[Rfam]
Rfam assigns this 180-nucleotide sequence from Marinobacter sp. BSs20148 to the family "6S / SsrS RNA". The family has 150 seed sequences and 5,006 matches in Rfam 15.1. Rfam classes the family as a non-coding RNA gene. NCBI's taxonomy places the organism under Bacteria, Pseudomonadati, Pseudomonadales, Marinobacteraceae, Marinobacter.
RNA sequence: ACCUUCCUGGGUUGUGCGCUCGUCGGGUACGUCCUCGAGCCGAUGCGCUUUACCCAGGUGGCCACUUUAGGGCAUUGUGAGCAUGUCCCCUGCGGGGGAAAGCCUAAUAUGUCACAGCGGUCACCGACCUUGAACUUGGGUUCAAGGACCUACAUCCGAUAACGGCAGCCCGGGAAGCUU
Number, nucleotide and partner (000 for none) at each position: 001a000002c000003c177004u176005u175006c174007c173008u172009g171010g170011g169012u168013u167014g166015u165016g000017c164018g163019c000020u000021c000022g000023u000024c000025g000026g000027g000028u000029a000030c000031g149032u148033c147034c146035u000036c000037g143038a142039g141040c140041c139042g000043a000044u000045g000046c000047g000048c000049u000050u000051u000052a000053c000054c000055c000056a000057g125058g124059u000060g122061g121062c120063c119064a000065c117066u000067u116068u000069a000070g000071g113072g112073c111074a110075u109076u000077g000078u000079g000080a000081g103082c102083a000084u000085g000086u099087c098088c097089c096090c095091u000092g000093c000094g000095g090096g089097g088098g087099a086100a000101a000102g082103c081104c000105u000106a000107a000108u000109a075110u074111g073112u072113c071114a000115c000116a067117g065118c000119g063120g062121u061122c060123a000124c058125c057126g000127a000128c000129c000130u000131u000132g000133a000134a000135c000136u000137u000138g000139g041140g040141u039142u038143c037144a000145a000146g034147g033148a032149c031150c000151u000152a000153c000154a000155u000156c000157c000158g000159a000160u000161a000162a000163c018164g017165g015166c014167a013168g012169c011170c010171c009172g008173g007174g006175a005176a004177g003178c000179u000180u000